[Rfam]
RNA: Bacterial large subunit ribosomal RNA, nucleotides 603 to 832
RNA sequence: GAGUUAUAGGUACUGGUAGGUUAAGGCACUUGGUGCUGAAGCCAAAGCGAAAGCGAGUCUGAAUAGGGCAAUUAAUCAGUAUUUAUAGACCCGAACCCGGGUGAUCUAACCAUGUCCAGGAUGAAGCUUGGGUAACACCAAGUGGAGGUCCGCACCGACUGAUGUUGAAAAAUCAGCGGAUGAGGUGUGGUUAGGGGUGAAAUGCCAAUCGAACCCGGAGCUAGCUGGUU
Numbered sequence: 001g002a003g004u005u006a007u008a009g010g011u012a013c014u015g016g017u018a019g020g021u022u023a024a025g026g027c028a029c030u031u032g033g034u035g036c037u038g039a040a041g042c043c044a045a046a047g048c049g050a051a052a053g054c055g056a057g058u059c060u061g062a063a064u065a066g067g068g069c070a071a072u073u074a075a076u077c078a079g080u081a082u083u084u085a086u087a088g089a090c091c092c093g094a095a096c097c098c099g100g101g102u103g104a105u106c107u108a109a110c111c112a113u114g115u116c117c118a119g120g121a122u123g124a125a126g127c128u129u130g131g132g133u134a135a136c137a138c139c140a141a142g143u144g145g146a147g148g149u150c151c152g153c154a155c156c157g158a159c160u161g162a163u164g165u166u167g168a169a170a171a172a173u174c175a176g177c178g179g180a181u182g183a184g185g186u187g188u189g190g191u192u193a194g195g196g197g198u199g200a201a202a203u204g205c206c207a208a209u210c211g212a213a214c215c216c217g218g219a220g221c222u223a224g225c226u227g228g229u230u
Stems, first nucleotide, its partner, number of pairs: 005087013019043004025037003047054002057069004090228002093225001097218006106194011117182001119151004126143006155179003159176005196206003